[Rfam]
RNA: RNase MRP
Organism: Bursaphelenchus okinawaensis
RNA sequence: AAGGUGGGAGUCUGUCAAGCGACGGAGAAACGUGAGAACGCCUGGUCGUUCGUGGUGCACUCUGUGGAAAGUCCCUGGACCAGCGGCUGAAAGAGCCUGUAGCCAGUGCUACACACUCCACCAUGCCUUUGGGCGCUUCCUCAGGAAUCUCUGAAAGGGUUCUACAGAAGACGACGAUGUUUCACUUGAGGGUCAUGAGGUCGAGAGACGGAGCCUGGAGCAGCGUCGAUGGUGGACGUUCGUCCUGUCAAAGUGACGCUUGAAUCUGUACCAAACAGCAUAGGGCUUACUGACACUCGUCACCU
Numbered sequence: 001a002a003g004g005u006g007g008g009a010g011u012c013u014g015u016c017a018a019g020c021g022a023c024g025g026a027g028a029a030a031c032g033u034g035a036g037a038a039c040g041c042c043u044g045g046u047c048g049u050u051c052g053u054g055g056u057g058c059a060c061u062c063u064g065u066g067g068a069a070a071g072u073c074c075c076u077g078g079a080c081c082a083g084c085g086g087c088u089g090a091a092a093g094a095g096c097c098u099g100u101a102g103c104c105a106g107u108g109c110u111a112c113a114c115a116c117u118c119c120a121c122c123a124u125g126c127c128u129u130u131g132g133g134c135g136c137u138u139c140c141u142c143a144g145g146a147a148u149c150u151c152u153g154a155a156a157g158g159g160u161u162c163u164a165c166a167g168a169a170g171a172c173g174a175c176g177a178u179g180u181u182u183c184a185c186u187u188g189a190g191g192g193u194c195a196u197g198a199g200g201u202c203g204a205g206a207g208a209c210g211g212a213g214c215c216u217g218g219a220g221c222a223g224c225g226u227c228g229a230u231g232g233u234g235g236a237c238g239u240u241c242g243u244c245c246u247g248u249c250a251a252a253g254u255g256a257c258g259c260u261u262g263a264a265u266c267u268g269u270a271c272c273a274a275a276c277a278g279c280a281u282a283g284g285g286c287u288u289a290c291u292g293a294c295a296c297u298c299g300u301c302a303c304c305u
Stems, first nucleotide, its partner, number of pairs: 002305006008298004015263006022065006036051005069288003073285004085097004098113006173226001178222004190216004200209003
Dot-bracket structure: .((((((((((...((((((.((((((........(((((......)))))........))))))...[[[.[[[[........((((.....))))((((((....))))))...........................................................(....((((........((((......(((....)))...))))..))))...)...............................))))))..................]]]]]]]......)))).))))))